The record is a 142-nucleotide sequence from Trifolium pratense, which matches "Small nucleolar RNA snoR2/U65" in Rfam. Lineage of the source: Eukaryota > Euphyllophyta > rosids > Trifolieae > Trifolium. The base pairs follow the family's consensus structure, which was predicted with WAR. A search with the family's covariance model found it, with a score of 99 bits. Its family is annotated with nucleolus and RNA processing in the Gene Ontology. Clan: SNORA65 clan.
RNA sequence: GGUCUGAUGCCACGUCUCUGGUAGCUAUAUAUUAGCUCUGACCAGAGAUGCUAUGAUUGGACCUAAAUCAAGAGUGCUUGUCAUUUGUUUCGCAUUUUGAUAGGAAUCUGUGAAUCUUAUAUACUAUGAUUAUGCAGAGCCG
Numbered sequence: 001g002g003u004c005u006g007a008u009g010c011c012a013c014g015u016c017u018c019u020g021g022u023a024g025c026u027a028u029a030u031a032u033u034a035g036c037u038c039u040g041a042c043c044a045g046a047g048a049u050g051c052u053a054u055g056a057u058u059g060g061a062c063c064u065a066a067a068u069c070a071a072g073a074g075u076g077c078u079u080g081u082c083a084u085u086u087g088u089u090u091c092g093c094a095u096u097u098u099g100a101u102a103g104g105a106a107u108c109u110g111u112g113a114a115u116c117u118u119a120u121a122u123a124c125u126a127u128g129a130u131u132a133u134g135c136a137g138a139g140c141c142g
Base pairs, nucleotide, nucleotide: 002062003061004060005059006058007057008056009054013050014049015048016047017046018045020043021042022041024036025035026034103141104140108137109136110135113131114130115129116128